c-di-AMP riboswitch aptamer (ydaO/yuaA leader): a 159-nucleotide RNA from Dactylosporangium siamense. A search with the family's covariance model found it, with a score of 82 bits.

RNA sequence: GGGCAGCCACCGCUGAGUCGUCGGCCGCGUGUCCCGCACGAGGUCGACGAGCCGGGGAACCAACCUCCAUCGGGGUGAAUCCGCGCCGCGGCGCGGUAGGGCGUCCUUCUUCUCGCCCGAAUCCGUCAGCUAACCCGGUAAGCGGUCCAGGAAGAAGGA
Numbered sequence: 001g002g003g004c005a006g007c008c009a010c011c012g013c014u015g016a017g018u019c020g021u022c023g024g025c026c027g028c029g030u031g032u033c034c035c036g037c038a039c040g041a042g043g044u045c046g047a048c049g050a051g052c053c054g055g056g057g058a059a060c061c062a063a064c065c066u067c068c069a070u071c072g073g074g075g076u077g078a079a080u081c082c083g084c085g086c087c088g089c090g091g092c093g094c095g096g097u098a099g100g101g102c103g104u105c106c107u108u109c110u111u112c113u114c115g116c117c118c119g120a121a122u123c124c125g126u127c128a129g130c131u132a133a134c135c136c137g138g139u140a141a142g143c144g145g146u147c148c149a150g151g152a153a154g155a156a157g158g159a
Base pairs, nucleotide, nucleotide: 011144012143013142014141018050019049020048021047022046023045024044025043026042051139052138053137054136055135056134061072073124074123075122081096082095083094084093099118100117101116102115